[Rfam]
RNA sequence: GGCGUAAAGGGUACGCAGGCGGAUAAUCAAGUCAAGCGUGAAAGGUGUCGGCUUAACCGACAGACUGCGUUUGAAACUGGUUAUCUUGAGUGUAACAGAGGAGAGUGGAAUUCCUAGUGUAGUGGUGAAAUACGUAGAUAUUAGGAAGAACACCAGUGGCGAAGGCGACUCUCUGGGUUAACACUGACGCUGAGGUACGAAAGCUGGGGGAGCGAACGGGAUUAGAUACCCCGGUAGUCCCAGCCGUAAACGAUGGAUACUAGGUGUUGGAGGUUCGAAUCCUUCAGUGCCGGAGUUAACGCAUUAAGUAUCCCGCCUGGGGAUUACGAUCGCAAGAUUGAAACUCAAAGGAAU
Number, nucleotide and partner (000 for none) at each position: 001g317002g316003c315004g000005u000006a000007a000008a000009g314010g000011g198012u197013a196014c195015g000016c192017a000018g191019g190020c189021g000022g085023a084024u083025a082026a081027u080028c079029a000030a078031g077032u074033c073034a072035a071036g070037c069038g068039u067040g066041a000042a000043a000044g000045g000046u062047g061048u060049c059050g058051g057052c000053u000054u000055a000056a000057c051058c050059g049060a048061c047062a046063g000064a000065c000066u040067g039068c038069g037070u036071u035072u034073g033074a032075a000076a000077c031078u030079g028080g027081u026082u025083a024084u023085c022086u000087u000088g000089a185090g184091u183092g000093u180094a179095a178096c177097a000098g000099a000100g174101g173102a172103g171104a170105g169106u168107g151108g000109a000110a000111u147112u146113c145114c144115u143116a142117g141118u140119g000120u000121a000122g133123u132124g131125g000126u000127g000128a000129a000130a000131u124132a123133c122134g000135u000136a000137g000138a000139u000140a118141u117142u116143a115144g114145g113146a112147a111148g000149a000150a000151c107152a000153c000154c000155a000156g000157u000158g000159g166160c165161g000162a000163a000164g000165g160166c159167g000168a106169c105170u104171c103172u102173c101174u100175g000176g000177g096178u095179u094180a093181a000182c000183a091184c090185u089186g000187a000188c000189g020190c019191u018192g016193a000194g000195g014196u013197a012198c011199g000200a000201a000202a000203g244204c243205u242206g241207g240208g239209g000210g000211a000212g238213c237214g000215a000216a000217c233218g232219g231220g230221a000222u000223u000224a000225g000226a000227u000228a000229c000230c220231c219232c218233g217234g000235u000236a000237g213238u212239c208240c207241c206242a205243g204244c203245c000246g000247u000248a000249a000250a000251c000252g000253a000254u000255g313256g312257a311258u310259a309260c308261u000262a000263g291264g290265u289266g288267u287268u286269g285270g284271a283272g282273g281274u000275u000276c000277g000278a000279a000280u000281c273282c272283u271284u270285c269286a268287g267288u266289g265290c264291c263292g000293g000294a000295g302296u301297u000298a000299a000300c000301g296302c295303a000304u000305u000306a000307a000308g260309u259310a258311u257312c256313c255314c009315g003316c002317c001318u000319g346320g345321g344322g000323a000324u000325u000326a000327c000328g339329a338330u337331c336332g000333c000334a000335a000336g331337a330338u329339u328340g000341a000342a000343a000344c321345u320346c319347a000348a000349a000350g000351g000352a000353a000354u000
RNA: Bacterial small subunit ribosomal RNA, nucleotides 589 to 942
Organism: Halanaerobium praevalens